Annotation:
Rfam assigns this 64-nucleotide sequence from Asarcornis scutulata to the family "Small nucleolar RNA SNORD24". The family's RNA type in Rfam is C/D-box small nucleolar RNA. Its family is annotated with nucleolus and RNA processing in the Gene Ontology. The base pairs follow the family's consensus structure, which was predicted with PFOLD. The source organism's lineage runs through Eukaryota, Bilateria, Tetrapoda, Dinosauria and Asarcornis. For this family Rfam cites "U24, a novel intron-encoded small nucleolar RNA with two 12 nt long, phylogenetically conserved complementarities to 28S rRNA" (Qu et al., Nucleic Acids Res, 1995).
RNA sequence: UGCAGAUGAUGCUAACUUGUUAUCUAAAUACAUUUUGAUGACAACCACCAAGAUCGCUGAUGCA
Number, nucleotide and partner (000 for none) at each position: 001u064002g063003c062004a061005g000006a000007u000008g000009a000010u000011g000012c000013u000014a000015a000016c000017u000018u000019g000020u000021u000022a000023u000024c000025u000026a000027a000028a000029u000030a000031c000032a000033u000034u000035u000036u000037g000038a000039u000040g000041a000042c000043a000044a000045c000046c000047a000048c000049c000050a000051a000052g000053a000054u000055c000056g000057c000058u000059g000060a000061u004062g003063c002064a001